[Rfam]
RNA sequence: GGUCAAGAGCCGCGGCCGGAACUCCUCGGGGUGGUCGCGCAGCAACCGGAGCCGCUCCGGUGCUUCCCGAGGAAGACCUGGCCUCCCCAACAGGCGGAGGUCAAGCGGCCUCG
Numbered sequence: 001g002g003u004c005a006a007g008a009g010c011c012g013c014g015g016c017c018g019g020a021a022c023u024c025c026u027c028g029g030g031g032u033g034g035u036c037g038c039g040c041a042g043c044a045a046c047c048g049g050a051g052c053c054g055c056u057c058c059g060g061u062g063c064u065u066c067c068c069g070a071g072g073a074a075g076a077c078c079u080g081g082c083c084u085c086c087c088c089a090a091c092a093g094g095c096g097g098a099g100g101u102c103a104a105g106c107g108g109c110c111u112c113g
Stems, first nucleotide, its partner, number of pairs: 001078004009040001011039006021032002041064003046060003050056001081102001083100002085097001087094002
Record summary: Shown here is a 113-nucleotide sequence from Tessaracoccus rhinocerotis, a member of the family "SAM (S-adenosyl methionine) riboswitch aptamer". NCBI's taxonomy places the organism under Bacteria, Actinomycetota, Propionibacteriales, Propionibacteriaceae, Tessaracoccus. About the family: SAM-IV is a mRNA element that regulates gene expression via direct sensing of S-adenosylmethionine (SAM or AdoMet). Rfam links the family to the GO terms regulation of gene expression and S-adenosylmethionine metabolic process. Pairs were carried over by alignment from the consensus structure, which is taken from published work.